[Rfam]
RNA sequence: AAAAUAGUAUUGGGGUGCUUAAUUAGUUAGCUGAGAUUAUACCCAUUGAACUUGCUGGAUAAUGCCAGUAAAAGGAAUACAAUAGGCAAAGGG
Dot-bracket structure: ......((((((((.((((.(.....).))).......)..)))).....(((.((((......))))...)))..)))).............
TPP riboswitch aptamer (THI element): a 93-nucleotide RNA from Gelidibacter algens.
A search with the family's covariance model found it, with a score of 61 bits.
Lineage of the source: Bacteria > Bacteroidota > Flavobacteriales > Flavobacteriaceae > Gelidibacter.
Pairs were carried over by alignment from the consensus structure, which is taken from published work.